Shown here is a 285-nucleotide RNA from Streptomyces vinaceus, a member of the family "5' ureB small RNA". The base pairs follow the family's consensus structure, which was predicted with mfold.
[Rfam]
RNA sequence: CCUCCAUGAUCCGCGGCGAGAGCAGGUGGACGUGCGUGUCGACGGCCCCGGCGGUGGCGAUCAUGCCCUCGCCGGAGACGAUGGUCGUCCCGGUGCCGACCACGACCUCGACCCCGUCGAGCGUAUCGGGGUUCCCCGCCCGCCCGAUGGAGGCGAUGCGGCCCUCCCGGAUGCCGAUGCUGGUCUUGCGUAUGCCGAGUACGGCGUCGAUGACCAGGACGUUGCUGAUGACGAGGUCGCAGGUCUCGCGGACGGCGGCGGCCUUCAGGUGCAGUCCGUCGCGGG
Numbered sequence: 001c002c003u004c005c006a007u008g009a010u011c012c013g014c015g016g017c018g019a020g021a022g023c024a025g026g027u028g029g030a031c032g033u034g035c036g037u038g039u040c041g042a043c044g045g046c047c048c049c050g051g052c053g054g055u056g057g058c059g060a061u062c063a064u065g066c067c068c069u070c071g072c073c074g075g076a077g078a079c080g081a082u083g084g085u086c087g088u089c090c091c092g093g094u095g096c097c098g099a100c101c102a103c104g105a106c107c108u109c110g111a112c113c114c115c116g117u118c119g120a121g122c123g124u125a126u127c128g129g130g131g132u133u134c135c136c137c138g139c140c141c142g143c144c145c146g147a148u149g150g151a152g153g154c155g156a157u158g159c160g161g162c163c164c165u166c167c168c169g170g171a172u173g174c175c176g177a178u179g180c181u182g183g184u185c186u187u188g189c190g191u192a193u194g195c196c197g198a199g200u201a202c203g204g205c206g207u208c209g210a211u212g213a214c215c216a217g218g219a220c221g222u223u224g225c226u227g228a229u230g231a232c233g234a235g236g237u238c239g240c241a242g243g244u245c246u247c248g249c250g251g252a253c254g255g256c257g258g259c260g261g262c263c264u265u266c267a268g269g270u271g272c273a274g275u276c277c278g279u280c281g282c283g284g285g
Stems, first nucleotide, its partner, number of pairs: 002285002005283001007281003012155003015073006027050003032046001035044003054066003074145002083141002086138002092135002095132002097129001098127002106121001108120005161270003169263002172260002174257001183220006196209002223254002230247002235244001

Rfam 15.1 lists 4,812 matches to the family in 4,480 species.